[Rfam]
RNA sequence: UGCGCCCGGGUAAGUCCUAUACGACCAGCUCCUGCUGAACUCCCCCAGGGCCUGACGGCAGCAAGGGUAGGCGGUUGUAGCGGUGCGAUAUAGGUAGCUUACCCACCU
Numbered sequence: 001u002g003c004g005c006c007c008g009g010g011u012a013a014g015u016c017c018u019a020u021a022c023g024a025c026c027a028g029c030u031c032c033u034g035c036u037g038a039a040c041u042c043c044c045c046c047a048g049g050g051c052c053u054g055a056c057g058g059c060a061g062c063a064a065g066g067g068u069a070g071g072c073g074g075u076u077g078u079a080g081c082g083g084u085g086c087g088a089u090a091u092a093g094g095u096a097g098c099u100u101a102c103c104c105a106c107c108u
Stems, first nucleotide, its partner, number of pairs: 008104008017093005022087002024084002

The family of this 108-nucleotide sequence from Thermophagus xiamenensis is "Bacteroidales small SRP". A reference for the family is Ryan et al. (2020), "A high-resolution transcriptome map identifies small RNA regulation of metabolism in the gut microbe Bacteroides thetaiotaomicron", Nat Commun. A search with the family's covariance model found it, with a score of 115 bits. It is annotated as a non-coding RNA gene. Pairs were carried over by alignment from the consensus structure, which is taken from published work. Taxonomically the source falls in Thermophagus (Bacteria, Pseudomonadati, Marinilabiliales, Marinilabiliaceae). Its family is annotated with SRP-dependent cotranslational protein targeting to membrane, signal sequence recognition and signal recognition particle, plasma membrane targeting in the Gene Ontology.